[Rfam]
RNA: Group II catalytic intron D1-D4-1
Organism: Endozoicomonas numazuensis
RNA sequence: CUACCAGUGUCGUGAGGCAUUGGGAUGGGGCGGCAGAAGUCAGCAGAAGUCGUAGUAGGUUUGUUGCCGCAAACUGAAGGGC
Numbered sequence: 001c002u003a004c005c006a007g008u009g010u011c012g013u014g015a016g017g018c019a020u021u022g023g024g025a026u027g028g029g030g031c032g033g034c035a036g037a038a039g040u041c042a043g044c045a046g047a048a049g050u051c052g053u054a055g056u057a058g059g060u061u062u063g064u065u066g067c068c069g070c071a072a073a074c075u076g077a078a079g080g081g082c
Base pairs, nucleotide, nucleotide: 001027004023005022006021007020008019009018010017011016040047041046049082050081051080058075059074060073061072062071063070
Dot-bracket structure: (..((((((((....))))))))...)............((....)).(((......((((((......))))))....)))